[Rfam]
RNA sequence: GGCAGUAACAGCAUAGUAGAGUGAGAACCUCUACCACCGCAAGCGCAAGGGUUUCCAGGCAAUGCGUUAUCAGCCUGGAGUUAGUCGAUCCUAAAAAUUACCUCAACAGAGUAAUUUGAAUGGGAAACUGGUUAAUAUUCCAGUACCUUGCAAACACGUUAUCAUCUAUAUGAUUUGCUUCUAGAUAGGGAAUGUAGAACCAUCGUUUUAUCUAACUGUUCAAGAUUCAGGGAGUGUCGUAAUGACGAGAACUGAUUUGAGGCAGGAAUGGCUUUGCGUUAGCAGAGUUUUCCCAAAUCCAGGAGACCUUGAAAGCUCGUAUAGAAAGUGUUUGUGAUGAUCGUACCGAGAACCGACACAGGUGCGCUGGCUUAGAAAGCUAAGGUGCUA
Numbered sequence: 001g002g003c004a005g006u007a008a009c010a011g012c013a014u015a016g017u018a019g020a021g022u023g024a025g026a027a028c029c030u031c032u033a034c035c036a037c038c039g040c041a042a043g044c045g046c047a048a049g050g051g052u053u054u055c056c057a058g059g060c061a062a063u064g065c066g067u068u069a070u071c072a073g074c075c076u077g078g079a080g081u082u083a084g085u086c087g088a089u090c091c092u093a094a095a096a097a098u099u100a101c102c103u104c105a106a107c108a109g110a111g112u113a114a115u116u117u118g119a120a121u122g123g124g125a126a127a128c129u130g131g132u133u134a135a136u137a138u139u140c141c142a143g144u145a146c147c148u149u150g151c152a153a154a155c156a157c158g159u160u161a162u163c164a165u166c167u168a169u170a171u172g173a174u175u176u177g178c179u180u181c182u183a184g185a186u187a188g189g190g191a192a193u194g195u196a197g198a199a200c201c202a203u204c205g206u207u208u209u210a211u212c213u214a215a216c217u218g219u220u221c222a223a224g225a226u227u228c229a230g231g232g233a234g235u236g237u238c239g240u241a242a243u244g245a246c247g248a249g250a251a252c253u254g255a256u257u258u259g260a261g262g263c264a265g266g267a268a269u270g271g272c273u274u275u276g277c278g279u280u281a282g283c284a285g286a287g288u289u290u291u292c293c294c295a296a297a298u299c300c301a302g303g304a305g306a307c308c309u310u311g312a313a314a315g316c317u318c319g320u321a322u323a324g325a326a327a328g329u330g331u332u333u334g335u336g337a338u339g340a341u342c343g344u345a346c347c348g349a350g351a352a353c354c355g356a357c358a359c360a361g362g363u364g365c366g367c368u369g370g371c372u373u374a375g376a377a378a379g380c381u382a383a384g385g386u387g388c389u390a
Stems, first nucleotide, its partner, number of pairs: 016034006035387004043367004049347002054079006063072002086343003090123002095117006102109002127144005147339001148337007178305005184299002188294005194211005216265004225256001227255004236246003277282001353362002368382004
The family of this 390-nucleotide part of an RNA from uncultured marine crenarchaeote SAT1000-49-D2 is "Archaeal large subunit ribosomal RNA". The source organism's lineage runs through Archaea, Thermoproteati, Nitrososphaerota, Nitrososphaeria and Nitrosopumilales. The sequence is in the family's curated seed alignment.